RNA sequence: ACGUAGAAAGCGGUGUAUUCCAAACAAAAAUUUGAUGGUAAAGCAGAAAAUUUUCUUAAUUCAAAAGGUUACGGUUUUGAUCCUAUAACGGCCUGAGGUAGAGGGGUUUUAGUCGGUAGGUUCGAGGACACCUUCCUCGGGAAUCCGAAACUACCCAGUCGUGCGGACGGCUGGGUGUCUUUUGAAGAUUUCCCCUCUUCCACGAAA
Dot-bracket structure: ...................................((((.(...............).).))).....((.((.......................((.((.(((.......((((....((((((((.....))))))))...))))..(.(((((..............))))))..............)))..)).)).)))).
RNA: R2 RNA element
Organism: Agrilus planipennis